[Rfam]
RNA sequence: GGCCGUUGACGUCUCCGAGCCCGGAGCGCCUACAGCGGAAAGCCAAGGACUUCGGGCCGAUAGGGUGUCGUGGGAAACUGCGGCGCCUCCCGCAUCGGAAAGGGGACGAGCGCAGCCGUGG
Numbered sequence: 001g002g003c004c005g006u007u008g009a010c011g012u013c014u015c016c017g018a019g020c021c022c023g024g025a026g027c028g029c030c031u032a033c034a035g036c037g038g039a040a041a042g043c044c045a046a047g048g049a050c051u052u053c054g055g056g057c058c059g060a061u062a063g064g065g066u067g068u069c070g071u072g073g074g075a076a077a078c079u080g081c082g083g084c085g086c087c088u089c090c091c092g093c094a095u096c097g098g099a100a101a102g103g104g105g106a107c108g109a110g111c112g113c114a115g116c117c118g119u120g121g
Stems, first nucleotide, its partner, number of pairs: 003115001006112001011107006019057008029048002035043002063088011089098002

This 121-nucleotide RNA sequence from Coriobacteriaceae bacterium EMTCatB1 belongs to the Rfam family "Molybdenum/Tungsten riboswitch aptamer (Moco RNA motif)". It scores 62 bits against the family's covariance model. The source organism's lineage runs through Bacteria, Bacillati, Actinomycetota, Coriobacteriia and Coriobacteriaceae.